Annotation:
mir-965 microRNA precursor family: a 70-nucleotide RNA from Orchesella cincta. Rfam links the family to the GO terms miRNA-mediated post-transcriptional gene silencing and RISC complex. The base pairs follow the family's consensus structure, which was predicted with RNAalifold. For this family Rfam cites "The regulation of silkworm fibroin L chain production by miRNA-965 and miRNA-1926 in insect cells" (Huang et al., Bioorg Khim, 2012).
[Rfam]
RNA sequence: UUCCUUAGGGGGAAGGUCAUGUCGUUUAUGUUUAUACAUAUCAUAAGCGUAUGGCUUUUCCCCUUGGGAU
Numbered sequence: 001u002u003c004c005u006u007a008g009g010g011g012g013a014a015g016g017u018c019a020u021g022u023c024g025u026u027u028a029u030g031u032u033u034a035u036a037c038a039u040a041u042c043a044u045a046a047g048c049g050u051a052u053g054g055c056u057u058u059u060c061c062c063c064u065u066g067g068g069a070u
Stems, first nucleotide, its partner, number of pairs: 003068003007064001009062003013058002017054005025047006